[Rfam]
RNA sequence: CCUAAACCCCCCACCCCAGCCCCCUCCCGCCCCCUCCCUACCCUGGCAGUACACUGCCAGGCAGUGUACUGCCAGGGUAGGGAGGGGCGGGAGGGGGCUGGGGUGGGAGGGCAAGGGUGG
Numbered sequence: 001c002c003u004a005a006a007c008c009c010c011c012c013a014c015c016c017c018a019g020c021c022c023c024c025u026c027c028c029g030c031c032c033c034c035u036c037c038c039u040a041c042c043c044u045g046g047c048a049g050u051a052c053a054c055u056g057c058c059a060g061g062c063a064g065u066g067u068a069c070u071g072c073c074a075g076g077g078u079a080g081g082g083a084g085g086g087g088c089g090g091g092a093g094g095g096g097g098c099u100g101g102g103g104u105g106g107g108a109g110g111g112c113a114a115g116g117g118u119g120g
Base pairs, nucleotide, nucleotide: 010107011106012105013104014103015102016101018099019098021096022095023094024093025092026091027090028089029088030087031086032085033084037081038080039079040078041077042076043075044074045073046072047071048070049069050068051067052066053065054064055063056062057061

A member of the RNA family "mraW RNA" from Cuscuta australis, 120 nucleotides long. It scores 54 bits against the family's covariance model. It is annotated as a cis-regulatory element. The organism belongs to Cuscuta sect. Cleistogrammica, within Eukaryota.